[Rfam]
RNA sequence: CGGGGACGACGCAGGCUCCCCGUCAGACACCUCACCGUCCAAGCUCUGC
Numbered sequence: 001c002g003g004g005g006a007c008g009a010c011g012c013a014g015g016c017u018c019c020c021c022g023u024c025a026g027a028c029a030c031c032u033c034a035c036c037g038u039c040c041a042a043g044c045u046c047u048g049c
Base pairs, nucleotide, nucleotide: 001022002021003020004019005018006017011049012048013047014046015045026039027038028037
The record is a 49-nucleotide sequence, which matches "chrB-b RNA" in Rfam. The family's RNA type in Rfam is cis-regulatory element. The sequence is in the family's curated seed alignment. The base pairs follow the family's consensus structure, which is taken from published work.